A member of the RNA family "Glycine riboswitch aptamer" from Allobosea sp. OK403, 100 nucleotides long. Taxonomically the source falls in Allobosea (Bacteria, Pseudomonadati, Hyphomicrobiales, Alloboseaceae). The match comes from Rfam's covariance-model search (64 bits).
RNA sequence: CACAUCCCCGCGGGAGAGACCGGGUUCGGACUUGUCCGGAUUCGGCGCCGAAGGCGCAACCGCCCCGGAAACGCUCAGGCAAAAGGACCGCUAGGGGAGU
Numbered sequence: 001c002a003c004a005u006c007c008c009c010g011c012g013g014g015a016g017a018g019a020c021c022g023g024g025u026u027c028g029g030a031c032u033u034g035u036c037c038g039g040a041u042u043c044g045g046c047g048c049c050g051a052a053g054g055c056g057c058a059a060c061c062g063c064c065c066c067g068g069a070a071a072c073g074c075u076c077a078g079g080c081a082a083a084a085g086g087a088c089c090g091c092u093a094g095g096g097g098a099g100u
Stems, first nucleotide, its partner, number of pairs: 006095002010091004020045008047080003050076002054074003060068002